[Rfam]
RNA sequence: UUUUCUGUACAGGUGGGGAUCAGUAGCAAUGCUGUGUAUCUGGAGGUAUUGCACUUGUCCCGGCCUGUGUAGGAACA
Numbered sequence: 001u002u003u004u005c006u007g008u009a010c011a012g013g014u015g016g017g018g019a020u021c022a023g024u025a026g027c028a029a030u031g032c033u034g035u036g037u038a039u040c041u042g043g044a045g046g047u048a049u050u051g052c053a054c055u056u057g058u059c060c061c062g063g064c065c066u067g068u069g070u071a072g073g074a075a076c077a
Stems, first nucleotide, its partner, number of pairs: 004073003009068006016061005022055003026052008

Source information: mir-92 microRNA precursor family: a 77-nucleotide RNA from Betta splendens. A reference for the family is Mourelatos et al. (2002), "miRNPs: a novel class of ribonucleoproteins containing numerous microRNAs", Genes Dev. Gene Ontology terms of the family: RISC complex and miRNA-mediated post-transcriptional gene silencing. The family's consensus secondary structure was predicted with PFOLD. From the family's description: This family represents the microRNA precursor mir-92. Human miR-92 has two predicted hairpin precursor sequences: mir-92-1 on chromosome 13 and mir-92-2 on chromosome X. miR-92 has also been cloned from mouse embryonic stem cells. The mature sequence is excised from the 3' arm of the hairpin. Its Rfam clan is "mir-92 microRNA precursor clan".